[Rfam]
RNA sequence: GCGUCCUGCCUCGUGAUCGUCUUCUCACCUUUCACCUGGCAGGCGGAUAACGGCGGGCCCCCGCGAGGACGUGACUCGCGGGGGCGCCGCU
Numbered sequence: 001g002c003g004u005c006c007u008g009c010c011u012c013g014u015g016a017u018c019g020u021c022u023u024c025u026c027a028c029c030u031u032u033c034a035c036c037u038g039g040c041a042g043g044c045g046g047a048u049a050a051c052g053g054c055g056g057g058c059c060c061c062c063g064c065g066a067g068g069a070c071g072u073g074a075c076u077c078g079c080g081g082g083g084g085c086g087c088c089g090c091u
Stems, first nucleotide, its partner, number of pairs: 002045002005043006013035004019029001052091005057085011
This 91-nucleotide RNA sequence from Streptomyces sp. SID8354 belongs to the Rfam family "sodF sRNA". For this family Rfam cites "Inverse regulation of Fe- and Ni-containing SOD genes by a Fur family regulator Nur through small RNA processed from 3'UTR of the sodF mRNA" (Kim et al., Nucleic Acids Res, 2014). Taxonomically the source falls in Streptomyces (Bacteria, Bacillati, Kitasatosporales, Streptomycetaceae). The base pairs follow the family's consensus structure. The family's RNA type in Rfam is small RNA. Gene Ontology terms of the family: negative regulation of translation, mRNA binding and regulation of mRNA stability.